mir-16 microRNA precursor family: a 79-nucleotide RNA from Brassicogethes aeneus. Its Rfam clan is "mir-15 clan". Rfam 15.1 lists 4,705 matches to the family in 758 species. A reference for the family is Calin et al. (2002), "Frequent deletions and down-regulation of micro- RNA genes miR15 and miR16 at 13q14 in chronic lymphocytic leukemia", Proc Natl Acad Sci U S A.
RNA sequence: AUUAUCACACACUCGCAUAAAAAUAUUAGAGGAUAUUAUCAUAAUAUCCUCUAAUAUUUUUAUGUGAGUGUGUGUAAAU
Numbered sequence: 001a002u003u004a005u006c007a008c009a010c011a012c013u014c015g016c017a018u019a020a021a022a023a024u025a026u027u028a029g030a031g032g033a034u035a036u037u038a039u040c041a042u043a044a045u046a047u048c049c050u051c052u053a054a055u056a057u058u059u060u061u062a063u064g065u066g067a068g069u070g071u072g073u074g075u076a077a078a079u
Base pairs, nucleotide, nucleotide: 001079002078003077006074007073010072011069012068013067014066015065016064017063018062020059022058023057024056025055026054027053028052029051
Rfam links the family to the GO terms miRNA-mediated post-transcriptional gene silencing and RISC complex. The match comes from Rfam's covariance-model search (37 bits).